A member of the RNA family "Small nucleolar RNA SNORA79" from Cyanoderma ruficeps, 141 nucleotides long.
A search with the family's covariance model found it, with a score of 61 bits.
Its family is annotated with nucleolus and RNA processing in the Gene Ontology.
Rfam's curators write: ACA65 (SNORA79) is a member of the H/ACA class of snoRNAs that guide the sites of modification of uridines to pseudouridines. This snoRNA was identified by computational screening and its expression in mouse experimentally verified by Northern blot and primer extension analysis.
Rfam classes the family as an H/ACA-box small nucleolar RNA.
Lineage of the source: Eukaryota > Saurischia > Aves > Neognathae > Cyanoderma.
A reference for the family is Schattner et al. (2006), "A computational screen for mammalian pseudouridylation guide H/ACA RNAs", RNA.
RNA sequence: CGACCCGCGUUCCCCCCGUCGCCGCCAGCUGCGGGCGCUCGGGGUUUUAGCGGUGUCGCAGAGCAGUGGCGGCUCCUUCUUCACCCGGCGGAGCAGAUCAGUAACUCGUGGCUCCGCCGGAAUUUGGGGGGUCGUACAAAU
Numbered sequence: 001c002g003a004c005c006c007g008c009g010u011u012c013c014c015c016c017c018g019u020c021g022c023c024g025c026c027a028g029c030u031g032c033g034g035g036c037g038c039u040c041g042g043g044g045u046u047u048u049a050g051c052g053g054u055g056u057c058g059c060a061g062a063g064c065a066g067u068g069g070c071g072g073c074u075c076c077u078u079c080u081u082c083a084c085c086c087g088g089c090g091g092a093g094c095a096g097a098u099c100a101g102u103a104a105c106u107c108g109u110g111g112c113u114c115c116g117c118c119g120g121a122a123u124u125u126g127g128g129g130g131g132u133c134g135u136a137c138a139a140a141u
Base pairs, nucleotide, nucleotide: 001058002057003056004055005053006052007051008050014044015043016042017041018040020037021036022035023034071133072132073131074130075129076128085120086119087118088117089116090115091114092113093112094111